Glycine riboswitch aptamer: a 102-nucleotide sequence from Qingrenia yutianensis. NCBI's taxonomy places the organism under Bacteria, Bacillota, Eubacteriales, Oscillospiraceae, Qingrenia. Rfam links the family to the GO term glycine biosynthetic process.
RNA sequence: GUAGGGAACUUCGGAGAAGCUCAUUUGAUUGAGUGCCGAAGGGGCAAGGCAUAUAUUUGAACGUAUGCCGAAACUCUCAGGCAAAAGGACGAAGAUACAAUG
Numbered sequence: 001g002u003a004g005g006g007a008a009c010u011u012c013g014g015a016g017a018a019g020c021u022c023a024u025u026u027g028a029u030u031g032a033g034u035g036c037c038g039a040a041g042g043g044g045c046a047a048g049g050c051a052u053a054u055a056u057u058u059g060a061a062c063g064u065a066u067g068c069c070g071a072a073a074c075u076c077u078c079a080g081g082c083a084a085a086a087g088g089a090c091g092a093a094g095a096u097a098c099a100a101u102g
Stems, first nucleotide, its partner, number of pairs: 007096001009094005020033004035082003038078002042076003048069007